RNA sequence: UGUGCAAGGAUGAUAAAACAGACAGGGACAUCAGAACCCUUUAACGGAUGAUGAGUUGUCUAUCAAUGGGAAUCUCUCUGAUGCACU
Numbered sequence: 001u002g003u004g005c006a007a008g009g010a011u012g013a014u015a016a017a018a019c020a021g022a023c024a025g026g027g028a029c030a031u032c033a034g035a036a037c038c039c040u041u042u043a044a045c046g047g048a049u050g051a052u053g054a055g056u057u058g059u060c061u062a063u064c065a066a067u068g069g070g071a072a073u074c075u076c077u078c079u080g081a082u083g084c085a086c087u
Stems, first nucleotide, its partner, number of pairs: 002086005
Shown here is an 87-nucleotide sequence from Hibiscus syriacus, a member of the family "Small nucleolar RNA R44/J54/Z268 family".
The base pairs follow the family's consensus structure, which was predicted with PFOLD.
Taxonomically the source falls in Hibiscus (Eukaryota, Pentapetalae, Malvales, Malvoideae).
Rfam classes the family as a C/D-box small nucleolar RNA.